This 100-nucleotide RNA from Scyliorhinus torazame belongs to the Rfam family "Small nucleolar RNA SNORD16". Its family is annotated with nucleolus and RNA processing in the Gene Ontology. Rfam classes the family as a C/D-box small nucleolar RNA. The organism belongs to Scyliorhinus, within Eukaryota. Its Rfam clan is "SNORD16 clan". For this family Rfam cites "A novel small nucleolar RNA (U16) is encoded inside a ribosomal protein intron and originates by processing of the pre-mRNA" (Fragapane et al., EMBO J, 1993).
[Rfam]
RNA sequence: UGCUAUGAUGGUGUAAUUUGCGUCUUACGCUGUGUGCAGUGGCAGUUGCCUACUGUCAUUAAGCUGGCACAGAGGAAUGACGAGCAUUGAAAUCUGAGCA
Numbered sequence: 001u002g003c004u005a006u007g008a009u010g011g012u013g014u015a016a017u018u019u020g021c022g023u024c025u026u027a028c029g030c031u032g033u034g035u036g037c038a039g040u041g042g043c044a045g046u047u048g049c050c051u052a053c054u055g056u057c058a059u060u061a062a063g064c065u066g067g068c069a070c071a072g073a074g075g076a077a078u079g080a081c082g083a084g085c086a087u088u089g090a091a092a093u094c095u096g097a098g099c100a
Stems, first nucleotide, its partner, number of pairs: 001100003021082004030072005039064002041057005